[Rfam]
RNA sequence: AGAGGGUAUCGCCGAAAACCUUUAUAUAAGAGUAGGCA
Number, nucleotide and partner (000 for none) at each position: 001a000002g022003a021004g020005g019006g000007u000008a000009u000010c000011g037012c036013c035014g000015a000016a000017a000018a000019c005020c004021u003022u002023u000024a000025u000026a000027u000028a000029a000030g000031a000032g000033u000034a000035g013036g012037c011038a000
The family of this 38-nucleotide RNA sequence from Taibaiella sp. KBW10 is "DUF805b RNA". Rfam classes the family as a cis-regulatory element.